[Rfam]
RNA: Small nucleolar RNA SNORA38
Organism: Oryctolagus cuniculus
Nucleotides: 127
Stems, first nucleotide, its partner, number of pairs: 002055001005052002015042001018039004024028001067120002070118001088106007
Number, partner (000 for none) and nucleotide at each position: 001000c002055c003000c004000a005052u006051c007000u008000a009000a010000a011000a012000a013000g014000g015042c016000a017000c018039g019038u020037c021036u022000g023000u024028g025000g026000u027000u028024c029000u030000g031000u032000c033000u034000g035000u036021g037020g038019a039018c040000a041000c042015g043000a044000a045000a046000g047000a048000a049000c050000u051006g052005g053000a054000a055002g056000c057000a058000a059000a060000g061000a062000a063000a064000c065000g066000u067120g068119a069000c070118c071000g072000g073000c074000c075000a076000a077000g078000u079000u080000c081000u082000g083000g084000g085000g086000a087000c088106g089105g090104c091103c092102u093101g094100c095000u096000c097000c098000c099000g100094g101093c102092a103091g104090g105089c106088u107000c108000a109000a110000g111000a112000c113000u114000g115000c116000c117000c118070g119068u120067c121000a122000c123000c124000g125000u126000a127000u